RNA sequence: GCACCUGCAUCUUCCCCUUCCUCUCUGUGCAGUGCAGGUCUGGGGGCUGUUGGUGCUACAGCACAGCAGUGGAAAUCCAGAUGGGUUCUUCACUGGUUUGAACUCAUCUCUACACCUCUGCAACACCA
Numbered sequence: 001g002c003a004c005c006u007g008c009a010u011c012u013u014c015c016c017c018u019u020c021c022u023c024u025c026u027g028u029g030c031a032g033u034g035c036a037g038g039u040c041u042g043g044g045g046g047c048u049g050u051u052g053g054u055g056c057u058a059c060a061g062c063a064c065a066g067c068a069g070u071g072g073a074a075a076u077c078c079a080g081a082u083g084g085g086u087u088c089u090u091c092a093c094u095g096g097u098u099u100g101a102a103c104u105c106a107u108c109u110c111u112a113c114a115c116c117u118c119u120g121c122a123a124c125a126c127c128a
Base pairs, nucleotide, nucleotide: 001056002055003054004053005052013046014045015044016043017042020038021037066121067120068119069118071116079109080108081107082106083105084104085103086102093100
This 128-nucleotide sequence from Copsychus sechellarum belongs to the Rfam family "Small nucleolar RNA SNORA55". It is annotated as an H/ACA-box small nucleolar RNA. ACA55 is a member of the H/ACA class of snoRNA that guide the sites of modification of uridines to pseudouridines.